[Rfam]
RNA: FMN riboswitch aptamer (RFN element)
RNA sequence: UAAUAUCUUCGGGGCAGGGUGUGAUUCCCUACCGGCGGUAUAGCCCGCGAGCAUAUGCAUGAUUCGGUGAGAUUCCGAAGCCGACAGUUAAAGUCUGGAUGAGAGAAGAAAGUA
Numbered sequence: 001u002a003a004u005a006u007c008u009u010c011g012g013g014g015c016a017g018g019g020u021g022u023g024a025u026u027c028c029c030u031a032c033c034g035g036c037g038g039u040a041u042a043g044c045c046c047g048c049g050a051g052c053a054u055a056u057g058c059a060u061g062a063u064u065c066g067g068u069g070a071g072a073u074u075c076c077g078a079a080g081c082c083g084a085c086a087g088u089u090a091a092a093g094u095c096u097g098g099a100u101g102a103g104a105g106a107a108g109a110a111a112g113u114a
Stems, first nucleotide, its partner, number of pairs: 004111001006109005017029003031094002033083002035048004043081002063079005085097003